[Rfam]
Shown here is a 205-nucleotide RNA from Handroanthus impetiginosus, a member of the family "MIR168 microRNA precursor family". Rfam 15.1 lists 518 matches to the family in 218 species. Lineage of the source: Eukaryota > Viridiplantae > Spermatophyta > lamiids > Handroanthus.
RNA sequence: GUUGCGGCGGCCUCUAAUUCGCUUGGUGCAGGUCGGGAACUUUCUUUGCCGGCGGCGUUGUCUGUGCGUUGAAUUGAAAGUAUACUCGAAUUGUACGUAGUACGUAUAAGUACGAGUAUACUAUACGGUGGAUAAUUGGAUGUCGCUGUUAUGGCGAAAGCUAGGUUCCCGCCUUGCAUCAACUGAAUCGGAGACCGCGGUGAAU
Dot-bracket structure: ............((..((((..((((((((((.(((((.((..........................................................................................................................)).))))).))))))))))..))))..)).............